[Rfam]
RNA sequence: GUUUGGCAAGGAUGAUGAAUCAAUUAGAUGUGUGAAAGGUAUUACUCCUUUGUGAACUCAGACUUUUGAGGCAUUUAAAUUGUCUGACUUGCCUGCC
Numbered sequence: 001g002u003u004u005g006g007c008a009a010g011g012a013u014g015a016u017g018a019a020u021c022a023a024u025u026a027g028a029u030g031u032g033u034g035a036a037a038g039g040u041a042u043u044a045c046u047c048c049u050u051u052g053u054g055a056a057c058u059c060a061g062a063c064u065u066u067u068g069a070g071g072c073a074u075u076u077a078a079a080u081u082g083u084c085u086g087a088c089u090u091g092c093c094u095g096c097c
Stems, first nucleotide, its partner, number of pairs: 001097001003095001005093006
The family of this 97-nucleotide RNA from Morus notabilis is "Small nucleolar RNA Z266". The base pairs follow the family's consensus structure, which was predicted with PFOLD. Lineage of the source: Eukaryota > Tracheophyta > Magnoliopsida > fabids > Morus. For this family Rfam cites "The high diversity of snoRNAs in plants: identification and comparative study of 120 snoRNA genes from Oryza sativa" (Chen et al., Nucleic Acids Res, 2003).